[Rfam]
RNA sequence: GUGUUUCGAACUAUAUUCCUAGCGGGCAAGGUUUUUUCAAAAAAUGAAAAAAAUCAUAAUCAGUCUAGGUAAUAAAAAUUAAAAAAAAAAAAAAAAUUGUAAUAAUUUUGUUAAUUUUUUACAAUAUUUUUUUUUAUUUAUAC
Numbered sequence: 001g002u003g004u005u006u007c008g009a010a011c012u013a014u015a016u017u018c019c020u021a022g023c024g025g026g027c028a029a030g031g032u033u034u035u036u037u038c039a040a041a042a043a044a045u046g047a048a049a050a051a052a053a054u055c056a057u058a059a060u061c062a063g064u065c066u067a068g069g070u071a072a073u074a075a076a077a078a079u080u081a082a083a084a085a086a087a088a089a090a091a092a093a094a095a096a097u098u099g100u101a102a103u104a105a106u107u108u109u110g111u112u113a114a115u116u117u118u119u120u121a122c123a124a125u126a127u128u129u130u131u132u133u134u135u136a137u138u139u140a141u142a143c
Base pairs, nucleotide, nucleotide: 018069019068020067021066022065023063024061025060030055031054032053033051034050035049036048037047038046083138084137086135087134088133089132090131091130092129094127096125097124098123099122100121101120102119
RNA: small nucleolar RNA snoR31
Organism: Plasmodium relictum